Description:
Rfam assigns this 199-nucleotide RNA sequence from Sparus aurata to the family "U2 spliceosomal RNA".
RNA sequence: AUUUGUGUUUUUGUGGUUGAAUAAACAAGGAAAAAAAAAUAAAAAAUCUGUUCUUAUCAGUUUAAUAUCUGAUAUGUCCUCUAUAUGGGGACUACAUAUUAAAUGGAUUUUUAGCCUCGGGAGCUGAAACAGGGCCUUGCUCCGUUCACUCCACGCAUCGACCCGGUAUUGCAGCGCCGCCGGGAACGGUGCACCCCUC
Numbered sequence: 001a002u003u004u005g006u007g008u009u010u011u012u013g014u015g016g017u018u019g020a021a022u023a024a025a026c027a028a029g030g031a032a033a034a035a036a037a038a039a040u041a042a043a044a045a046a047u048c049u050g051u052u053c054u055u056a057u058c059a060g061u062u063u064a065a066u067a068u069c070u071g072a073u074a075u076g077u078c079c080u081c082u083a084u085a086u087g088g089g090g091a092c093u094a095c096a097u098a099u100u101a102a103a104u105g106g107a108u109u110u111u112u113a114g115c116c117u118c119g120g121g122a123g124c125u126g127a128a129a130c131a132g133g134g135c136c137u138u139g140c141u142c143c144g145u146u147c148a149c150u151c152c153a154c155g156c157a158u159c160g161a162c163c164c165g166g167u168a169u170u171g172c173a174g175c176g177c178c179g180c181c182g183g184g185a186a187c188g189g190u191g192c193a194c195c196c197c198u199c
Stems, first nucleotide, its partner, number of pairs: 002034003055074006076092006120152004126146002132143003155192006162184006
Dot-bracket structure: .(((...........................)))....................((((((........)))))).((((((.....))))))...........................((((..((....(((......))).))..))))..((((((.((((((...........))))))..)))))).......
Rfam describes the family as follows. U2 is a small nuclear RNA (snRNA) component of the spliceosome (involved in pre-mRNA splicing). Its Rfam clan is "U2 clan".